[Rfam]
RNA sequence: CCGUGCUAGGCGGGGAGGUAGCGGUGCCCUGAACCUGCAAUCCGCUCUAGCAGGGCUGAAUUCCCUCCCAAGGGUCGCCGGCUCUCGAGGCCAGCGUGCUGUACGGAGGCGUUGAUGGUCAGGUCCCGCGCGAUGACGACCCGCGAACCAGGUCAGGUCCGGAAGGAAGCAGCCUUAAACGGUCCUCGUCAUGCGUAGCGGGAGUGCCUGGCCGGAGUCGAUCGGCAGAGGCGCGCUCGGGAACCCGUCUCGACGGAGGGUGCACGG
Numbered sequence: 001c002c003g004u005g006c007u008a009g010g011c012g013g014g015g016a017g018g019u020a021g022c023g024g025u026g027c028c029c030u031g032a033a034c035c036u037g038c039a040a041u042c043c044g045c046u047c048u049a050g051c052a053g054g055g056c057u058g059a060a061u062u063c064c065c066u067c068c069c070a071a072g073g074g075u076c077g078c079c080g081g082c083u084c085u086c087g088a089g090g091c092c093a094g095c096g097u098g099c100u101g102u103a104c105g106g107a108g109g110c111g112u113u114g115a116u117g118g119u120c121a122g123g124u125c126c127c128g129c130g131c132g133a134u135g136a137c138g139a140c141c142c143g144c145g146a147a148c149c150a151g152g153u154c155a156g157g158u159c160c161g162g163a164a165g166g167a168a169g170c171a172g173c174c175u176u177a178a179a180c181g182g183u184c185c186u187c188g189u190c191a192u193g194c195g196u197a198g199c200g201g202g203a204g205u206g207c208c209u210g211g212c213c214g215g216a217g218u219c220g221a222u223c224g225g226c227a228g229a230g231g232c233g234c235g236c237u238c239g240g241g242a243a244c245c246c247g248u249c250u251c252g253a254c255g256g257a258g259g260g261u262g263c264a265c266g267g
Stems, first nucleotide, its partner, number of pairs: 001267006009057003012030004017025001019023001034054005063260006072251003076247001080245002083242007094232001097230001099228004105223002108219003116214009125202005131193002134191005141182003150175004158167003